A member of the RNA family "Fluoride riboswitch aptamer (crcB RNA motif)" from Nitrospira defluvii, 76 nucleotides long.
A search with the family's covariance model found it, with a score of 54 bits.

[Rfam]
RNA sequence: AAAUCCUCAGGUGAUGGAGUUCACCGAGAACCGCCGGUCGCGAUCCUCGCCUUCGGCUGAUAACUCCUACCAGCGC
Numbered sequence: 001a002a003a004u005c006c007u008c009a010g011g012u013g014a015u016g017g018a019g020u021u022c023a024c025c026g027a028g029a030a031c032c033g034c035c036g037g038u039c040g041c042g043a044u045c046c047u048c049g050c051c052u053u054c055g056g057c058u059g060a061u062a063a064c065u066c067c068u069a070c071c072a073g074c075g076c
Base pairs, nucleotide, nucleotide: 010025011024012023013022016067017066018065019064020063021062033057034056035055036054